Shown here is a 127-nucleotide RNA sequence from Sutterella wadsworthensis, a member of the family "DUF3800-I RNA". Actinobacteria, Firmicutes, Fusobacteria, Proteobacteria (1 example), Tenericutes (2 examples).
[Rfam]
RNA sequence: UGAGGUUACGGAUCCUUCGGGAGUCCGUGUACCGAGGCUAAGUGAAUUAACGUUUAAGCGCGCUGUAAGCACGCCACCCCUCGGGGAGAAGCCGCCUAUAUAGAAAUUGGCGGCUUCUUUUUUGCUU
Numbered sequence: 001u002g003a004g005g006u007u008a009c010g011g012a013u014c015c016u017u018c019g020g021g022a023g024u025c026c027g028u029g030u031a032c033c034g035a036g037g038c039u040a041a042g043u044g045a046a047u048u049a050a051c052g053u054u055u056a057a058g059c060g061c062g063c064u065g066u067a068a069g070c071a072c073g074c075c076a077c078c079c080c081u082c083g084g085g086g087a088g089a090a091g092c093c094g095c096c097u098a099u100a101u102a103g104a105a106a107u108u109g110g111c112g113g114c115u116u117c118u119u120u121u122u123u124g125c126u127u
Stems, first nucleotide, its partner, number of pairs: 007029005013022002032084006042077003045054003058074003062070002088117009
Rfam classes the family as a small RNA.